[Rfam]
A member of the RNA family "Xanthomonadaceae sRNA sX5" from Xanthomonas boreopolis, 49 nucleotides long. The family's RNA type in Rfam is small RNA.

RNA sequence: AGAAGACCGUCUGCUCCCCUCCCCUUUCGGCUUCGGACUGGCGGGUUUU
Dot-bracket structure: ......((((..(.(((.....((....))....))))..)))).....
Numbered sequence: 001a002g003a004a005g006a007c008c009g010u011c012u013g014c015u016c017c018c019c020u021c022c023c024c025u026u027u028c029g030g031c032u033u034c035g036g037a038c039u040g041g042c043g044g045g046u047u048u049u
Stems, first nucleotide, its partner, number of pairs: 007044004013038001015037003023030002
On this family, see Schmidtke et al., Nucleic Acids Res 2011: "Genome-wide transcriptome analysis of the plant pathogen Xanthomonas identifies sRNAs with putative virulence functions".